[Rfam]
RNA sequence: UGAGAGAACACUGGUUAAGGAACUCGGCAAAAUGAUACCGUAACUUCGGGAGAAGGUAUGCCCUUUUGGGUGAAGAGACUUGCUCUCUUAGCUUGGGAGGGUCGCAGAGAAAUGGCGGUAGCGACUGUUUACUAAAAACAUAGGACUCUGCAAAGUCGCAAGACGACGUAUAGGGUCUGACGCCUGCCCGGUGCCGGAAGGUUAAGGGGAUUUGUUAGCCGCAAGGUGAAGCUUUGAACCGAAGCCCCGGUAAACGGCGGCCGUAACUAUAACGGUCCUAAGGUAGCGAAAUUCCUUGUCGGGUAAGUUCCGACCUGCACGAAUGGCGUAACGAUUUCCGCGCUGUCUCAACCAGUGGCUCA
Numbered sequence: 001u002g003a004g005a006g007a008a009c010a011c012u013g014g015u016u017a018a019g020g021a022a023c024u025c026g027g028c029a030a031a032a033u034g035a036u037a038c039c040g041u042a043a044c045u046u047c048g049g050g051a052g053a054a055g056g057u058a059u060g061c062c063c064u065u066u067u068g069g070g071u072g073a074a075g076a077g078a079c080u081u082g083c084u085c086u087c088u089u090a091g092c093u094u095g096g097g098a099g100g101g102u103c104g105c106a107g108a109g110a111a112a113u114g115g116c117g118g119u120a121g122c123g124a125c126u127g128u129u130u131a132c133u134a135a136a137a138a139c140a141u142a143g144g145a146c147u148c149u150g151c152a153a154a155g156u157c158g159c160a161a162g163a164c165g166a167c168g169u170a171u172a173g174g175g176u177c178u179g180a181c182g183c184c185u186g187c188c189c190g191g192u193g194c195c196g197g198a199a200g201g202u203u204a205a206g207g208g209g210a211u212u213u214g215u216u217a218g219c220c221g222c223a224a225g226g227u228g229a230a231g232c233u234u235u236g237a238a239c240c241g242a243a244g245c246c247c248c249g250g251u252a253a254a255c256g257g258c259g260g261c262c263g264u265a266a267c268u269a270u271a272a273c274g275g276u277c278c279u280a281a282g283g284u285a286g287c288g289a290a291a292u293u294c295c296u297u298g299u300c301g302g303g304u305a306a307g308u309u310c311c312g313a314c315c316u317g318c319a320c321g322a323a324u325g326g327c328g329u330a331a332c333g334a335u336u337u338c339c340g341c342g343c344u345g346u347c348u349c350a351a352c353c354a355g356u357g358g359c360u361c362a
Stems, first nucleotide, its partner, number of pairs: 001362004009357008018348003035059005044049001060102006073089006103107001115341004120336002122333002126140003143178008151168001155164003181328004186258003191255002193251005200246003206240002214232002218227002259277006278282001288315001298314006
Shown here is a 362-nucleotide part of an RNA from Citrifermentans bemidjiense, a member of the family "Bacterial large subunit ribosomal RNA".
The family's consensus secondary structure is taken from published work.
A search with the family's covariance model found it, with a score of 2997 bits.
NCBI's taxonomy places the organism under Bacteria, Thermodesulfobacteriota, Desulfuromonadia, Geobacterales, Citrifermentans bemidjiense.